RNA: Small nucleolar RNA SNORD111
Organism: Castor canadensis
RNA sequence: CAGCCUGAAAUGAUGAUUUUAAACUUCAUGUCUCUUCUCUGACAUUUUUCUCUGGAGAUGAUUUUUGCCUUACUCAUCUGAUCAGGCUG
Dot-bracket structure: (((((...............................................................................)))))